Source information
A member of the RNA family "Mammalian CPEB3 ribozyme" from Strongylocentrotus purpuratus, 72 nucleotides long. The mammalian CPEB3 ribozyme is a self cleaving RNA located in the second intron of the CPEB3 gene which belongs to a family of genes regulating messenger RNA polyadenylation. This ribozyme is highly conserved and found only in mammals.

[Rfam]
RNA sequence: CUAGGUUUCGGGGGCCAUUGAAGGAGCGUUCAAGUUACGGUCCCUGUCAGAUGAAAAUCUGCAAAAGCUUCA
Numbered sequence: 001c002u003a004g005g006u007u008u009c010g011g012g013g014g015c016c017a018u019u020g021a022a023g024g025a026g027c028g029u030u031c032a033a034g035u036u037a038c039g040g041u042c043c044c045u046g047u048c049a050g051a052u053g054a055a056a057a058u059c060u061g062c063a064a065a066a067g068c069u070u071c072a
Base pairs, nucleotide, nucleotide: 011044012043013042014041015040016039019072020071021070022069023068026038028036048061049060050059051058052057